RNA sequence: AUAAAUGUAAUGAGGAAGAGGAGUAAGUAAGGUUACUUAGCAGAGAAGAUGUCCCGAGGCUGAAAGGAUAUCUUAAGGAAACUUAUUGAAGGUAGCUUCUGAACAGUAUUUCCGAACAAAAGUAAGAAAUACCGGGGUGUCCCGUUACAGGCACAAGACCGGGUCAUAAUAUAUCGGUUUGUAGGUGGUCUAUGACAGUAGGCCAUAAAUAAAGGUGGUACCACGGUUCUUCGUCCUUUGA
Numbered sequence: 001a002u003a004a005a006u007g008u009a010a011u012g013a014g015g016a017a018g019a020g021g022a023g024u025a026a027g028u029a030a031g032g033u034u035a036c037u038u039a040g041c042a043g044a045g046a047a048g049a050u051g052u053c054c055c056g057a058g059g060c061u062g063a064a065a066g067g068a069u070a071u072c073u074u075a076a077g078g079a080a081a082c083u084u085a086u087u088g089a090a091g092g093u094a095g096c097u098u099c100u101g102a103a104c105a106g107u108a109u110u111u112c113c114g115a116a117c118a119a120a121a122g123u124a125a126g127a128a129a130u131a132c133c134g135g136g137g138u139g140u141c142c143c144g145u146u147a148c149a150g151g152c153a154c155a156a157g158a159c160c161g162g163g164u165c166a167u168a169a170u171a172u173a174u175c176g177g178u179u180u181g182u183a184g185g186u187g188g189u190c191u192a193u194g195a196c197a198g199u200a201g202g203c204c205a206u207a208a209a210u211a212a213a214g215g216u217g218g219u220a221c222c223a224c225g226g227u228u229c230u231u232c233g234u235c236c237u238u239u240g241a
Stems, first nucleotide, its partner, number of pairs: 007104002015099004026087006036077003049073001051071002107131006133144003186205006212238004223234004

Rfam assigns this 241-nucleotide RNA from Anaerocolumna cellulosilytica to the family "T-box leader".
About the family: Uncharged tRNA acts as the effector for transcription antitermination of genes in the T-box leader family. T-boxes are found upstream of many aminoacyl-tRNA synthetase genes and some amino acid biosynthetic genes usually in Gram-positive bacteria. The anticodon of a specific tRNA base pairs to a specifier sequence within the T-box motif, and the NCCA acceptor tail of the tRNA base pairs to a conserved bulge in the T-box antiterminator hairpin.
The family's RNA type in Rfam is cis-regulatory leader.